[Rfam]
RNA sequence: CGUUGGUUCCCUCGCAACGAUAAGCUGUAAACCCCGCCAGGCCCGGAAGGGAGCAACGGUAGCAGUGGAUUCGUGUGCCGGGGUGUAGCUGGCGGGG
Numbered sequence: 001c002g003u004u005g006g007u008u009c010c011c012u013c014g015c016a017a018c019g020a021u022a023a024g025c026u027g028u029a030a031a032c033c034c035c036g037c038c039a040g041g042c043c044c045g046g047a048a049g050g051g052a053g054c055a056a057c058g059g060u061a062g063c064a065g066u067g068g069a070u071u072c073g074u075g076u077g078c079c080g081g082g083g084u085g086u087a088g089c090u091g092g093c094g095g096g097g
Stems, first nucleotide, its partner, number of pairs: 004091005010083005015075001017074004024066005034059003042051003